Background
Rfam assigns this 346-nucleotide sequence from Nitratiruptor sp. SB155-2 to the family "Bacterial RNase P class A". The family's consensus secondary structure is taken from published work. The organism belongs to Nitratiruptor, within Bacteria.

[Rfam]
RNA sequence: GUGGCGCAACGGAUAGCUGCUUGGGAAACCAAGAGGAAAGUCCGAGCUGCAGUGAGGCAGGGUUCCACCUAACCGGUGGCCAGCGAAGCCCUUUGGGAUAAGCUGAGGGAAAGUGCAACAGAAAGCAGACCGCCGAUGGCCUUUUGGCACAGGCAAGGGUGAAAGGGUGAGGUAAGAGCUCACCGCUUCUGUGGCAACACAGAAGGCAGUGUAAACCCAACCCGCAGCAAGUCGCACCUGGUUAAAGCCUCACAUUUUUGAGUGCGACGCUAGAGCUUAGUGGUGACACUAAGCGUAGAUAAAUAGCUAUCCACGACAGAACUCGGCUUACAGUUGCGCCACCUCU
Numbered sequence: 001g002u003g004g005c006g007c008a009a010c011g012g013a014u015a016g017c018u019g020c021u022u023g024g025g026a027a028a029c030c031a032a033g034a035g036g037a038a039a040g041u042c043c044g045a046g047c048u049g050c051a052g053u054g055a056g057g058c059a060g061g062g063u064u065c066c067a068c069c070u071a072a073c074c075g076g077u078g079g080c081c082a083g084c085g086a087a088g089c090c091c092u093u094u095g096g097g098a099u100a101a102g103c104u105g106a107g108g109g110a111a112a113g114u115g116c117a118a119c120a121g122a123a124a125g126c127a128g129a130c131c132g133c134c135g136a137u138g139g140c141c142u143u144u145u146g147g148c149a150c151a152g153g154c155a156a157g158g159g160u161g162a163a164a165g166g167g168u169g170a171g172g173u174a175a176g177a178g179c180u181c182a183c184c185g186c187u188u189c190u191g192u193g194g195c196a197a198c199a200c201a202g203a204a205g206g207c208a209g210u211g212u213a214a215a216c217c218c219a220a221c222c223c224g225c226a227g228c229a230a231g232u233c234g235c236a237c238c239u240g241g242u243u244a245a246a247g248c249c250u251c252a253c254a255u256u257u258u259u260g261a262g263u264g265c266g267a268c269g270c271u272a273g274a275g276c277u278u279a280g281u282g283g284u285g286a287c288a289c290u291a292a293g294c295g296u297a298g299a300u301a302a303a304u305a306g307c308u309a310u311c312c313a314c315g316a317c318a319g320a321a322c323u324c325g326g327c328u329u330a331c332a333g334u335u336g337c338g339c340c341a342c343c344u345c346u
Stems, first nucleotide, its partner, number of pairs: 001342010011331001012311007020033005038329003042326005047227004057251001060223005065079005080107001081105004108218002113216002115212003130158002132154003137149001139148003166184006185207001186205008231268004244258004275294008